[Rfam]
The family of this 97-nucleotide sequence from Zunongwangia atlantica is "TPP riboswitch aptamer (THI element)".
Pairs were carried over by alignment from the consensus structure, which is taken from published work.

RNA sequence: UGUAAACUUUAGGGGUGCCAAUUAAAUUUGGCUGAGAUAACACCCUUUGAACCUGAUCCAGAUUAGCAUCUGCGAAGGAAAAAGUACGAAAACUUUG
Numbered sequence: 001u002g003u004a005a006a007c008u009u010u011a012g013g014g015g016u017g018c019c020a021a022u023u024a025a026a027u028u029u030g031g032c033u034g035a036g037a038u039a040a041c042a043c044c045c046u047u048u049g050a051a052c053c054u055g056a057u058c059c060a061g062a063u064u065a066g067c068a069u070c071u072g073c074g075a076a077g078g079a080a081a082a083a084g085u086a087c088g089a090a091a092a093c094u095u096u097g
Stems, first nucleotide, its partner, number of pairs: 006085005011046004016040001017032005052078003059072004